[Rfam]
RNA: Iron response element I
Nucleotides: 035
Base pairs, nucleotide, nucleotide: 001035002034006031007030008029010028013026014025015024016023017021
Number, partner (000 for none) and nucleotide at each position: 001035c002034c003000u004000a005000c006031u007030c008029u009000u010028g011000c012000c013026u014025c015024a016023a017021c018000a019000g020000u021017g022000u023016u024015u025014g026013g027000a028010c029008a030007g031006a032000a033000u034002g035001g